RNA sequence: UGGACGUUGGCGGAGAGGUUUAACGCGCUUGAUUGUGGAUUAAGAGUUCACCAGUUCGAAUCUGGUACGCCCAC
Numbered sequence: 001u002g003g004a005c006g007u008u009g010g011c012g013g014a015g016a017g018g019u020u021u022a023a024c025g026c027g028c029u030u031g032a033u034u035g036u037g038g039a040u041u042a043a044g045a046g047u048u049c050a051c052c053a054g055u056u057c058g059a060a061u062c063u064g065g066u067a068c069g070c071c072c073a074c
Stems, first nucleotide, its partner, number of pairs: 001073003005069003010026003028044005050066005
Annotation:
tRNA: a 74-nucleotide sequence from Treponema sp. JC4. The family's consensus secondary structure is taken from published work. NCBI's taxonomy places the organism under Bacteria, Pseudomonadati, Treponematales, Treponemataceae, Treponema. The family's RNA type in Rfam is transfer RNA. A search with the family's covariance model found it, with a score of 53 bits.